[Rfam]
RNA: Bacterial small subunit ribosomal RNA, nucleotides 561 to 914
Organism: Pseudomonas aeruginosa
RNA sequence: GGCGUAAAGCGCGCGUAGGUGGUUCAGCAAGUUGGAUGUGAAAUCCCCGGGCUCAACCUGGGAACUGCAUCCAAAACUACUGAGCUAGAGUACGGUAGAGGGUGGUGGAAUUUCCUGUGUAGCGGUGAAAUGCGUAGAUAUAGGAAGGAACACCAGUGGCGAAGGCGACCACCUGGACUGAUACUGACACUGAGGUGCGAAAGCGUGGGGAGCAAACAGGAUUAGAUACCCUGGUAGUCCACGCCGUAAACGAUGUCGACUAGCCGUUGGGAUCCUUGAGAUCUUAGUGGCGCAGCUAACGCGAUAAGUCGACCGCCUGGGGAGUACGGCCGCAAGGUUAAAACUCAAAUGAAU
Number, nucleotide and partner (000 for none) at each position: 001g317002g316003c315004g000005u000006a000007a000008a000009g314010c000011g198012c197013g196014c195015g000016u192017a000018g191019g190020u189021g000022g085023u084024u083025c082026a081027g080028c000029a000030a078031g077032u074033u073034g072035g071036a070037u069038g068039u067040g066041a000042a000043a000044u000045c000046c062047c061048c060049g059050g058051g057052c000053u000054c000055a000056a000057c051058c050059u049060g048061g047062g046063a000064a000065c000066u040067g039068c038069a037070u036071c035072c034073a033074a032075a000076a000077c031078u030079a000080c027081u026082g025083a024084g023085c022086u000087a000088g000089a185090g184091u183092a000093c180094g179095g178096u177097a000098g000099a000100g174101g173102g172103u171104g170105g169106u168107g151108g000109a000110a000111u147112u146113u145114c144115c143116u142117g141118u140119g000120u000121a000122g133123c132124g131125g000126u000127g000128a000129a000130a000131u124132g123133c122134g000135u000136a000137g000138a000139u000140a118141u117142a116143g115144g114145a113146a112147g111148g000149a000150a000151c107152a000153c000154c000155a000156g000157u000158g000159g166160c165161g000162a000163a000164g000165g160166c159167g000168a106169c105170c104171a103172c102173c101174u100175g000176g000177a096178c095179u094180g093181a000182u000183a091184c090185u089186g000187a000188c000189a020190c019191u018192g016193a000194g000195g014196u013197g012198c011199g000200a000201a000202a000203g244204c243205g242206u241207g240208g239209g000210g000211a000212g238213c237214a000215a000216a000217c233218a232219g231220g230221a000222u000223u000224a000225g000226a000227u000228a000229c000230c220231c219232u218233g217234g000235u000236a000237g213238u212239c208240c207241a206242c205243g204244c203245c000246g000247u000248a000249a000250a000251c000252g000253a000254u000255g313256u312257c311258g310259a309260c308261u000262a000263g291264c290265c289266g288267u287268u286269g285270g284271g283272a282273u281274c280275c000276u000277u000278g000279a000280g274281a273282u272283c271284u270285u269286a268287g267288u266289g265290g264291c263292g000293c000294a000295g302296c301297u000298a000299a000300c000301g296302c295303g000304a000305u000306a000307a000308g260309u259310c258311g257312a256313c255314c009315g003316c002317c001318u000319g346320g345321g344322g000323a000324g000325u000326a000327c000328g339329g338330c337331c336332g000333c000334a000335a000336g331337g330338u329339u328340a000341a000342a000343a000344c321345u320346c319347a000348a000349a000350u000351g000352a000353a000354u000